Shown here is a 122-nucleotide RNA from Micromonospora rosaria, a member of the family "SAM (S-adenosyl methionine) riboswitch aptamer". The base pairs follow the family's consensus structure, which is taken from published work.

[Rfam]
Nucleotides: 122
Base pairs, nucleotide, nucleotide: 001084002083003082004081009038011037012036013035014034015033016032021030022029039071040070041069044067045066046065048062087111088110089109090108091107093105094103095102096101
Number, partner (000 for none) and nucleotide at each position: 001084g002083g003082u004081c005000a006000c007000g008000a009038g010000c011037g012036c013035c014034a015033g016032c017000g018000u019000c020000a021030a022029g023000c024000c025000c026000c027000g028000g029022c030021u031000u032016g033015c034014u035013g036012g037011c038009c039071g040070g041069c042000a043000a044067c045066c046065c047000u048062c049000g050000u051000c052000g053000a054000g055000g056000u057000u058000c059000g060000c061000g062048g063000u064000g065046g066045g067044g068000u069041g070040c071039c072000c073000c074000g075000g076000g077000u078000g079000a080000u081004g082003a083002c084001c085000g086000g087111g088110c089109c090108c091107g092000a093105c094103c095102g096101c097000a098000g099000c100000c101096g102095c103094g104000u105093g106000c107091c108090g109089g110088g111087c112000a113000a114000g115000c116000g117000c118000g119000g120000a121000c122000c
Overview: Lineage of the source: Bacteria > Bacillati > Actinomycetes > Micromonosporaceae > Micromonospora.